[Rfam]
RNA: t44 RNA
RNA sequence: CUUUUUCGGAGCACAAACCCACACAUGCAUCGACACGAUGGCCUGGGUGCCCGCAAGGGUUGGUCAUUGGGAUGCGUGGAGGCCUAAC
Dot-bracket structure: .......................((((((((....((((((((.....((((....)))).)))))))).))))))))..........